[Rfam]
Mammalian CPEB3 ribozyme: a 77-nucleotide RNA from Parnassius apollo.

RNA sequence: UUCGGGGGGGGGGGGGUCAUUGUAGAAGCGUGCUCGUCGCGACCCCUGCCAGCCCUUUUCAGGGCUGCAUUUCUACU
Numbered sequence: 001u002u003c004g005g006g007g008g009g010g011g012g013g014g015g016g017u018c019a020u021u022g023u024a025g026a027a028g029c030g031u032g033c034u035c036g037u038c039g040c041g042a043c044c045c046c047u048g049c050c051a052g053c054c055c056u057u058u059u060c061a062g063g064g065c066u067g068c069a070u071u072u073c074u075a076c077u
Stems, first nucleotide, its partner, number of pairs: 013046006022076006028040003050067007
The base pairs follow the family's consensus structure, which is taken from published work.